[Rfam]
RNA: raiA RNA
Organism: Veillonella criceti
RNA sequence: UUCAUACGGGUCUGUGGUUGAAAGUCGAGGCCAGUCGCAGGCAAAACGAUCCACGUAAGUAAUGUAACGACAUUAUGAGCAUGGUGCGGCUUAGAUGUAAGACCUACCGAUAGAAUCGAGAGAAGUAGUAGUGGGGAGCCACAGGCUUAGGAGCGAACCUUCCAGUAGGCGAGUGUGGGGGCAAAGACCAGGUCAGCCGUAUAUA
Numbered sequence: 001u002u003c004a005u006a007c008g009g010g011u012c013u014g015u016g017g018u019u020g021a022a023a024g025u026c027g028a029g030g031c032c033a034g035u036c037g038c039a040g041g042c043a044a045a046a047c048g049a050u051c052c053a054c055g056u057a058a059g060u061a062a063u064g065u066a067a068c069g070a071c072a073u074u075a076u077g078a079g080c081a082u083g084g085u086g087c088g089g090c091u092u093a094g095a096u097g098u099a100a101g102a103c104c105u106a107c108c109g110a111u112a113g114a115a116u117c118g119a120g121a122g123a124a125g126u127a128g129u130a131g132u133g134g135g136g137a138g139c140c141a142c143a144g145g146c147u148u149a150g151g152a153g154c155g156a157a158c159c160u161u162c163c164a165g166u167a168g169g170c171g172a173g174u175g176u177g178g179g180g181g182c183a184a185a186g187a188c189c190a191g192g193u194c195a196g197c198c199g200u201a202u203a204u205a
Stems, first nucleotide, its partner, number of pairs: 001205001004202006012196003015190005028176001030174001031041001033091007050084002058076001060075005082183001103169005108118003122162004131154002137147003